[Rfam]
RNA sequence: UAGCAUUAUAUGCUGAAUCCCUGAACAGGGAGCGGGAGAACCAAUAAAUUGGGGUGAAUCCGGAGGUAGUCUUCGGUAGGGUUAGCUCUUUCAAUCCGAAUCCGUCAGCUAAUUUCGCAAGCAUUAGGAAGAGAAAGU
Numbered sequence: 001u002a003g004c005a006u007u008a009u010a011u012g013c014u015g016a017a018u019c020c021c022u023g024a025a026c027a028g029g030g031a032g033c034g035g036g037a038g039a040a041c042c043a044a045u046a047a048a049u050u051g052g053g054g055u056g057a058a059u060c061c062g063g064a065g066g067u068a069g070u071c072u073u074c075g076g077u078a079g080g081g082u083u084a085g086c087u088c089u090u091u092c093a094a095u096c097c098g099a100a101u102c103c104g105u106c107a108g109c110u111a112a113u114u115u116c117g118c119a120a121g122c123a124u125u126a127g128g129a130a131g132a133g134a135a136a137g138u
Stems, first nucleotide, its partner, number of pairs: 011123004018031003032118006042051002052103003060076004079097004

Shown here is a 138-nucleotide RNA sequence from Peptoclostridium acidaminophilum, a member of the family "c-di-AMP riboswitch aptamer (ydaO/yuaA leader)". Rfam links the family to the GO terms cyclic-di-AMP binding and regulation of gene expression. Taxonomically the source falls in Peptoclostridium acidaminophilum (Bacteria, Bacillota, Clostridia, Peptostreptococcales). This family represents a conserved RNA structure found upstream of the ydaO and yuaA genes in Bacillus subtilis and related genes in other bacteria.